[Rfam]
RNA sequence: CUCAGCCAUACUCUAACGAGUGUUGCUGAGCCACACGCCAAUUUAUUAGCGCAUCAUUUAGAUUUAUUUUAAGCCAUAAAAUACAAUCGCAACAUUAAGUAAGGUUAAUUUUUCCUUACGAGAAAAAAUUAAUUGCAAUAAAAAAUAUUUACAACGAAAUAUGAAGCGACAGUGGAAGGUUCAGAAAUGAACUUUUUGAAAUGAUAAACUGGCUAUAUCUU
Number, nucleotide and partner (000 for none) at each position: 001c030002u029003c028004a027005g026006c025007c000008a023009u022010a021011c020012u019013c018014u000015a000016a000017c000018g013019a012020g011021u010022g009023u008024u000025g006026c005027u004028g003029a002030g001031c000032c000033a000034c000035a000036c000037g213038c212039c211040a210041a000042u208043u207044u206045a205046u204047u000048a000049g000050c000051g182052c000053a180054u179055c178056a000057u176058u175059u174060a000061g000062a000063u000064u000065u000066a000067u000068u000069u000070u000071a000072a000073g000074c000075c000076a000077u000078a000079a000080a000081a000082u000083a000084c000085a000086a000087u169088c168089g167090c166091a000092a000093c163094a162095u161096u000097a000098a000099g000100u000101a000102a000103g000104g000105u000106u000107a000108a000109u000110u000111u000112u000113u000114c000115c000116u000117u000118a000119c000120g000121a000122g000123a000124a000125a000126a000127a000128a000129u000130u000131a000132a000133u000134u000135g000136c000137a000138a000139u000140a000141a000142a000143a000144a000145a000146u000147a000148u000149u000150u000151a000152c000153a000154a000155c000156g000157a000158a000159a000160u000161a095162u094163g093164a000165a000166g090167c089168g088169a087170c000171a000172g000173u000174g059175g058176a057177a000178g055179g054180u053181u000182c051183a000184g000185a000186a000187a000188u000189g000190a000191a000192c000193u000194u000195u000196u000197u000198g000199a000200a000201a000202u000203g000204a046205u045206a044207a043208a042209c000210u040211g039212g038213c037214u000215a000216u000217a000218u000219c000220u000221u000

Overview: The record is a 221-nucleotide RNA sequence, which matches "RT-16 RNA" in Rfam. The family's RNA type in Rfam is small RNA. The sequence is in the family's curated seed alignment.